[Rfam]
Shown here is a 73-nucleotide RNA from Selenomonas sputigena, a member of the family "tRNA". The base pairs follow the family's consensus structure, which is taken from published work. By type it is a transfer RNA. The organism belongs to Selenomonas sputigena, within Bacteria.
RNA sequence: GCUGAUGUAGCUCAGUUGGUAGAGCAGCUCAUUCGUAAUGAGCAGGUCGUAGGUUCAAGCCCUAUCAUCAGCU
Numbered sequence: 001g002c003u004g005a006u007g008u009a010g011c012u013c014a015g016u017u018g019g020u021a022g023a024g025c026a027g028c029u030c031a032u033u034c035g036u037a038a039u040g041a042g043c044a045g046g047u048c049g050u051a052g053g054u055u056c057a058a059g060c061c062c063u064a065u066c067a068u069c070a071g072c073u
Stems, first nucleotide, its partner, number of pairs: 001072007010025004027043005049065005